[Rfam]
RNA sequence: UUGUUCACGUCUCCUUAUCACUUUUCCAGCCCAGCUAUAGAUUCAAUAUUCGUUGGACGGAGAACUGAUAAGGGCAUGUGCAUGA
Numbered sequence: 001u002u003g004u005u006c007a008c009g010u011c012u013c014c015u016u017a018u019c020a021c022u023u024u025u026c027c028a029g030c031c032c033a034g035c036u037a038u039a040g041a042u043u044c045a046a047u048a049u050u051c052g053u054u055g056g057a058c059g060g061a062g063a064a065c066u067g068a069u070a071a072g073g074g075c076a077u078g079u080g081c082a083u084g085a
Base pairs, nucleotide, nucleotide: 012074013073014072015071016070017069018068019067020066022064023063024062025061026060027059030056031055
mir-184 microRNA precursor family: an 85-nucleotide RNA from Gouania willdenowi. Its family is annotated with gene silencing by miRNA and RISC complex in the Gene Ontology. The literature on the family includes a 2005 paper in Genes Dev by Chen et al., "The developmental miRNA profiles of zebrafish as determined by small RNA cloning". Pairs were carried over by alignment from the consensus structure, which was predicted with PFOLD.